[Rfam]
RNA sequence: UAGCAAGUCGGACCCCCGGGCCCAAGCCCAGUUUGAUUGGGAUUGAGGUCCCUAUUCCACUCGCCACAGCAGCUAGCCGUGCGCCGUGUUGCAGGUGACCCUCCCAUGGGUCUCCUGUGUCAAAAAUCGCCGGCACAGCU
Dot-bracket structure: ..((.(((.((......((((((((.................))).))))).....))))).))............(((.(((...((.((((((...(((......)))...)))))).)).....)))))).......
The record is a 140-nucleotide sequence from Polarella glacialis, which matches "small nucleolar RNA snoR134" in Rfam.
Taxonomically the source falls in Polarella (Eukaryota, Sar, Alveolata, Dinophyceae).
Rfam links the family to the GO terms nucleolus and RNA processing.
The family's RNA type in Rfam is H/ACA-box small nucleolar RNA.
The match comes from Rfam's covariance-model search (42 bits).
The family has 5 seed sequences and 792 matches in Rfam 15.1.
Pairs were carried over by alignment from the consensus structure, which was predicted with RNAalifold.
The literature on the family includes a 2009 paper in Nucleic Acids Res by Chen and Wu, "Mining small RNA sequencing data: a new approach to identify small nucleolar RNAs in Arabidopsis".